[Rfam]
RNA: THF (Tetrahydrofolate) riboswitch aptamer
RNA sequence: UGCAGAGUAGGCUCAUCCGCGUAGGGGCAAAAAGCCCCGCAGUGCCUUGUGAACAGGGAGUUGACACAGGGACGAAAGGGAACGCAGAACGUGCGUUUUUCCGCGGUGGGUGAGCCGCAUCCCGCUGAA
Numbered sequence: 001u002g003c004a005g006a007g008u009a010g011g012c013u014c015a016u017c018c019g020c021g022u023a024g025g026g027g028c029a030a031a032a033a034g035c036c037c038c039g040c041a042g043u044g045c046c047u048u049g050u051g052a053a054c055a056g057g058g059a060g061u062u063g064a065c066a067c068a069g070g071g072a073c074g075a076a077a078g079g080g081a082a083c084g085c086a087g088a089a090c091g092u093g094c095g096u097u098u099u100u101c102c103g104c105g106g107u108g109g110g111u112g113a114g115c116c117g118c119a120u121c122c123c124g125c126u127g128a129a
Stems, first nucleotide, its partner, number of pairs: 001129001003127003010116010020105003042073002045071007056122003060118001078102004